The record is a 348-nucleotide part of an RNA from Allobrachymonas denitrificans, which matches "Bacterial large subunit ribosomal RNA" in Rfam. The source organism's lineage runs through Bacteria, Pseudomonadota, Betaproteobacteria, Comamonadaceae and Allobrachymonas denitrificans.

[Rfam]
RNA sequence: UGAGAGAACUCUGGAGAAGGAACUCGGCAAAUUGACACCGUAACUUCGGGAGAAGGUGUGCCCUAGUAGUGUGAUGAGAGCAUCUGAGCAUGAACGGGUUGCAAAAAAUUGGUGGCUGCGACUGUUUAUUAAAAACACAGCACUCUGCAAACACGAAAGUGGACGUAUAGGGUGUGACGCCUGCCCGGUGCUGGAAGAUUAAUUGAUGGGGUGCAAGCUCUUGAUCGAAGUCCCAGUAAACGGCGGCCGUAACUAUAACGGUCCUAAGGUAGCGAAAUUCCUUGUCGGGUAAGUUCCGACCUGCACGAAUGGCGUAACGAUGGCCACACUGUCUCCUCCAGAGACUCA
Numbered sequence: 001u002g003a004g005a006g007a008a009c010u011c012u013g014g015a016g017a018a019g020g021a022a023c024u025c026g027g028c029a030a031a032u033u034g035a036c037a038c039c040g041u042a043a044c045u046u047c048g049g050g051a052g053a054a055g056g057u058g059u060g061c062c063c064u065a066g067u068a069g070u071g072u073g074a075u076g077a078g079a080g081c082a083u084c085u086g087a088g089c090a091u092g093a094a095c096g097g098g099u100u101g102c103a104a105a106a107a108a109u110u111g112g113u114g115g116c117u118g119c120g121a122c123u124g125u126u127u128a129u130u131a132a133a134a135a136c137a138c139a140g141c142a143c144u145c146u147g148c149a150a151a152c153a154c155g156a157a158a159g160u161g162g163a164c165g166u167a168u169a170g171g172g173u174g175u176g177a178c179g180c181c182u183g184c185c186c187g188g189u190g191c192u193g194g195a196a197g198a199u200u201a202a203u204u205g206a207u208g209g210g211g212u213g214c215a216a217g218c219u220c221u222u223g224a225u226c227g228a229a230g231u232c233c234c235a236g237u238a239a240a241c242g243g244c245g246g247c248c249g250u251a252a253c254u255a256u257a258a259c260g261g262u263c264c265u266a267a268g269g270u271a272g273c274g275a276a277a278u279u280c281c282u283u284g285u286c287g288g289g290u291a292a293g294u295u296c297c298g299a300c301c302u303g304c305a306c307g308a309a310u311g312g313c314g315u316a317a318c319g320a321u322g323g324c325c326a327c328a329c330u331g332u333c334u335c336c337u338c339c340a341g342a343g344a345c346u347c348a
Stems, first nucleotide, its partner, number of pairs: 001348004009343008018334003035059005044049001060099004073084004100104001112327007119319002123137003140175008148165001152161003178314004183244003188241002190237005197232003208221005245263006264268001274301001284300006